About this RNA
MIR394 microRNA precursor family: a 119-nucleotide RNA from Microthlaspi erraticum.

RNA sequence: CUUACAGAGAUCUUUGGCAUUCUGUCCACCUCCUCGCUAGAUAUAUGUACACAAAGUGUAUGUAUCUGCGUUGUGUUUUGUGAGGGGAGGUGGGCAUACUGCCAAUAGAGAUCUGUUAG
Numbered sequence: 001c002u003u004a005c006a007g008a009g010a011u012c013u014u015u016g017g018c019a020u021u022c023u024g025u026c027c028a029c030c031u032c033c034u035c036g037c038u039a040g041a042u043a044u045a046u047g048u049a050c051a052c053a054a055a056g057u058g059u060a061u062g063u064a065u066c067u068g069c070g071u072u073g074u075g076u077u078u079u080g081u082g083a084g085g086g087g088a089g090g091u092g093g094g095c096a097u098a099c100u101g102c103c104a105a106u107a108g109a110g111a112u113c114u115g116u117u118a119g
Base pairs, nucleotide, nucleotide: 011109014105015104016103017102018101019100023096024095025094026093027092028091029090030089031088032087033086034085035084

The family has 19 seed sequences and 724 matches in Rfam 15.1. On this family, see Jones-Rhoades and Bartel, Mol Cell 2004: "Computational identification of plant microRNAs and their targets, including a stress-induced miRNA". Taxonomically the source falls in Microthlaspi (Eukaryota, Magnoliopsida, malvids, Coluteocarpeae).